[Rfam]
RNA sequence: UUGCAGGUCAUUGUCAGCGAGGCUUAGCCUACAGUGGCUCUGUCCUUUCCUAAAGUGUCUGCUAGAAUGAACUGAGAUGGUUUGAGGCCUUGCUGUGUUUCUUCCAUGGCAAGGUUAUAGGUAAACCUCAGACAAAU
Numbered sequence: 001u002u003g004c005a006g007g008u009c010a011u012u013g014u015c016a017g018c019g020a021g022g023c024u025u026a027g028c029c030u031a032c033a034g035u036g037g038c039u040c041u042g043u044c045c046u047u048u049c050c051u052a053a054a055g056u057g058u059c060u061g062c063u064a065g066a067a068u069g070a071a072c073u074g075a076g077a078u079g080g081u082u083u084g085a086g087g088c089c090u091u092g093c094u095g096u097g098u099u100u101c102u103u104c105c106a107u108g109g110c111a112a113g114g115u116u117a118u119a120g121g122u123a124a125a126c127c128u129c130a131g132a133c134a135a136a137u
Base pairs, nucleotide, nucleotide: 003062004061005060006059007058008057020046021045022044026039027038028037029036073130074129075128076127088114089113090112091111092110093109095107096106097105
Record summary:
A member of the RNA family "Small nucleolar RNA SNORA9" from Esox lucius, 137 nucleotides long. Rfam classes the family as an H/ACA-box small nucleolar RNA. Lineage of the source: Eukaryota > Opisthokonta > Chordata > Esocidae > Esox. The match comes from Rfam's covariance-model search (106 bits). From the family's description: ACA9 is a member of the H/ACA class of snoRNA that guide the sites of modification of uridines to pseudouridines. The base pairs follow the family's consensus structure, which was predicted with PFOLD.